RNA sequence: CCCGCCACUGCGCCUGCCCAUGCUGCUGGCUGGCGCAAUCCAGUGGUGAGCUGAGAGGAAGCCCCGGCUUAGGAAACAGGGUUGUCCUCCACGUGGAUGACUCUGUGCCGAAAGCACGGGAACAGCC
Numbered sequence: 001c002c003c004g005c006c007a008c009u010g011c012g013c014c015u016g017c018c019c020a021u022g023c024u025g026c027u028g029g030c031u032g033g034c035g036c037a038a039u040c041c042a043g044u045g046g047u048g049a050g051c052u053g054a055g056a057g058g059a060a061g062c063c064c065c066g067g068c069u070u071a072g073g074a075a076a077c078a079g080g081g082u083u084g085u086c087c088u089c090c091a092c093g094u095g096g097a098u099g100a101c102u103c104u105g106u107g108c109c110g111a112a113a114g115c116a117c118g119g120g121a122a123c124a125g126c127c
Stems, first nucleotide, its partner, number of pairs: 005046006018033003021028002062120003066117001067115004072109002077105006085097003
The family of this 127-nucleotide RNA from Oryctolagus cuniculus is "Small nucleolar RNA SNORA65". The family's RNA type in Rfam is H/ACA-box small nucleolar RNA. From the family's description: U65 belongs to the H/ACA class of snoRNAs which are thought to guide the sites of modification of uridines to pseudouridines. NCBI's taxonomy places the organism under Eukaryota, Opisthokonta, Eutheria, Leporidae, Oryctolagus. The base pairs follow the family's consensus structure, which was predicted with RNAalifold. Its family is annotated with nucleolus and RNA processing in the Gene Ontology.